Rfam assigns this 63-nucleotide sequence from Rhodobacter sp. AKP1 to the family "L2-Alphaproteobacteria ribosomal protein leader". Lineage of the source: Bacteria > Pseudomonadati > Alphaproteobacteria > Rhodobacterales > Rhodobacter. The literature on the family includes a 2020 paper in BMC Microbiol by Eckert and Weinberg, "Discovery of 20 novel ribosomal leader candidates in bacteria and archaea".

[Rfam]
RNA sequence: GGGGAUCUUCGGAGCCCUGUACCGACCCCUCCCGAGGGGUCUCUAGCUGACGGAAGACAGGAA
Numbered sequence: 001g002g003g004g005a006u007c008u009u010c011g012g013a014g015c016c017c018u019g020u021a022c023c024g025a026c027c028c029c030u031c032c033c034g035a036g037g038g039g040u041c042u043c044u045a046g047c048u049g050a051c052g053g054a055a056g057a058c059a060g061g062a063a
Base pairs, nucleotide, nucleotide: 001018002017003016004015006014008012024041025040026039027038028037029036030035